Description: A member of the RNA family "tRNA" from Apostichopus japonicus, 73 nucleotides long. The family's RNA type in Rfam is transfer RNA. A search with the family's covariance model found it, with a score of 58 bits.
RNA sequence: GGCGCCAUGGCUUAGGUGGUAAAGCGCCUGUCUAGUAAACAGGAGAUCCCCGGGGCAAAUCCGGGUGGUGCCU
Numbered sequence: 001g002g003c004g005c006c007a008u009g010g011c012u013u014a015g016g017u018g019g020u021a022a023a024g025c026g027c028c029u030g031u032c033u034a035g036u037a038a039a040c041a042g043g044a045g046a047u048c049c050c051c052g053g054g055g056c057a058a059a060u061c062c063g064g065g066u067g068g069u070g071c072c073u
Stems, first nucleotide, its partner, number of pairs: 001072007010025004027043005049065005